A member of the RNA family "Small nucleolar RNA Z152/R70/R12/" from Salvia splendens, 98 nucleotides long. Rfam links the family to the GO terms RNA processing and nucleolus.

RNA sequence: UUUGCUAUGAUGAGAUAAAGCACAAGCUCUGUGUUUGAGGCAGUGGAUUCCGAUCCGUGAGCUUUCUAAAUUAACGACUUCUCCUUCCACUGAGAAAA
Dot-bracket structure: (((.(........................................................................................).)))
Numbered sequence: 001u002u003u004g005c006u007a008u009g010a011u012g013a014g015a016u017a018a019a020g021c022a023c024a025a026g027c028u029c030u031g032u033g034u035u036u037g038a039g040g041c042a043g044u045g046g047a048u049u050c051c052g053a054u055c056c057g058u059g060a061g062c063u064u065u066c067u068a069a070a071u072u073a074a075c076g077a078c079u080u081c082u083c084c085u086u087c088c089a090c091u092g093a094g095a096a097a098a
Stems, first nucleotide, its partner, number of pairs: 001098003005094001
A search with the family's covariance model found it, with a score of 71 bits. Taxonomically the source falls in core Calosphace (Eukaryota, Gunneridae, Lamiales, Nepetoideae). Rfam classes the family as a C/D-box small nucleolar RNA.